[Rfam]
RNA sequence: AGGUAAAAAACCCACUUCUUCAGAUUUUAUAUAUAUAUAUAUAUAUAUAUAAAAUCUGAAGAAGUGGGUUUUUUACCU
Numbered sequence: 001a002g003g004u005a006a007a008a009a010a011c012c013c014a015c016u017u018c019u020u021c022a023g024a025u026u027u028u029a030u031a032u033a034u035a036u037a038u039a040u041a042u043a044u045a046u047a048u049a050u051a052a053a054a055u056c057u058g059a060a061g062a063a064g065u066g067g068g069u070u071u072u073u074u075a076c077c078u
Stems, first nucleotide, its partner, number of pairs: 007072019027052005
RNA: mir-1 microRNA precursor family